[Rfam]
RNA: U12 minor spliceosomal RNA
Nucleotides: 156
Base pairs, nucleotide, nucleotide: 004023005022006021007020008019032053033052034051035050037048038047039046055076056075057074058073092156098153099152100151101150102149104147106144107143110141111140112139119134120133121132122131
Number, partner (000 for none) and nucleotide at each position: 001000g002000u003000g004023c005022c006021u007020u008019a009000a010000a011000c012000u013000a014000a015000u016000g017000a018000g019008u020007a021006a022005g023004g024000a025000a026000a027000a028000c029000a030000a031000a032053g033052c034051g035050a036000a037048c038047g039046g040000u041000g042000a043000g044000a045000a046039c047038c048037g049000g050035u051034c052033g053032c054000a055076g056075c057074g058073u059000a060000u061000c062000u063000c064000a065000a066000u067000u068000u069000a070000a071000g072000a073058a074057c075056g076055c077000a078000c079000g080000a081000a082000u083000u084000u085000a086000u087000g088000g089000a090000g091000g092156g093000u094000u095000u096000a097000u098153a099152g100151g101150c102149u103000g104147g105000c106144c107143a108000a109000u110141g111140u112139g113000u114000u115000g116000a117000c118000g119134c120133u121132g122131c123000u124000u125000a126000c127000u128000u129000u130000u131122g132121c133120a134119g135000a136000a137000c138000u139112c140111a141110c142000u143107u144106g145000u146000g147104c148000g149102g150101g151100c152099c153098u154000c155000c156092c